[Rfam]
RNA sequence: GAUGAAUAGCGCGGGAAAUAGUUGACGAACACAUAUCCCCGCGACUGGUCGAUGCAGUGGAACAGCGGGUUCCAGUCGAACAUGGCGAGCAUGUAGGCAGGCAGGGUGUUGGCCACGAACAUCUUGCCCGAUGCGAUCAUGUUGGCGCGUUG
Numbered sequence: 001g002a003u004g005a006a007u008a009g010c011g012c013g014g015g016a017a018a019u020a021g022u023u024g025a026c027g028a029a030c031a032c033a034u035a036u037c038c039c040c041g042c043g044a045c046u047g048g049u050c051g052a053u054g055c056a057g058u059g060g061a062a063c064a065g066c067g068g069g070u071u072c073c074a075g076u077c078g079a080a081c082a083u084g085g086c087g088a089g090c091a092u093g094u095a096g097g098c099a100g101g102c103a104g105g106g107u108g109u110u111g112g113c114c115a116c117g118a119a120c121a122u123c124u125u126g127c128c129c130g131a132u133g134c135g136a137u138c139a140u141g142u143u144g145g146c147g148c149g150u151u152g
Stems, first nucleotide, its partner, number of pairs: 001032001003031002007029001012024003036056001038054001040051002063152005069081004085146002088143006100129002102126006109118003
The record is a 152-nucleotide RNA sequence from Lutimaribacter saemankumensis, which matches "Ruegeria cis2 sRNA" in Rfam. Its family is annotated with regulation of gene expression in the Gene Ontology. The match comes from Rfam's covariance-model search (108 bits). A reference for the family is Rivers et al. (2016), "Experimental Identification of Small Non-Coding RNAs in the Model Marine Bacterium Ruegeria pomeroyi DSS-3", Front Microbiol. The base pairs follow the family's consensus structure, which was predicted with RNAfold.